Record summary:
Shown here is an 82-nucleotide RNA, a member of the family "Small nucleolar RNA snoR53Y". The literature on the family includes a 2001 paper in RNA by Brown et al., "Multiple snoRNA gene clusters from Arabidopsis". Its family is annotated with RNA processing and nucleolus in the Gene Ontology. The family is grouped with related families in Rfam's "snoR53 clan". A search with the family's covariance model found it, with a score of 70 bits.
RNA sequence: GUUCCUGAUGAUGCUACAAACCAUGCUAAUUCUGAUGAAUUUAUGACUGAAAUCCGAUUUUCGGAAAUUUCCUGAGGGGACA
Numbered sequence: 001g002u003u004c005c006u007g008a009u010g011a012u013g014c015u016a017c018a019a020a021c022c023a024u025g026c027u028a029a030u031u032c033u034g035a036u037g038a039a040u041u042u043a044u045g046a047c048u049g050a051a052a053u054c055c056g057a058u059u060u061u062c063g064g065a066a067a068u069u070u071c072c073u074g075a076g077g078g079g080a081c082a
Stems, first nucleotide, its partner, number of pairs: 001081005
Dot-bracket structure: (((((.......................................................................))))).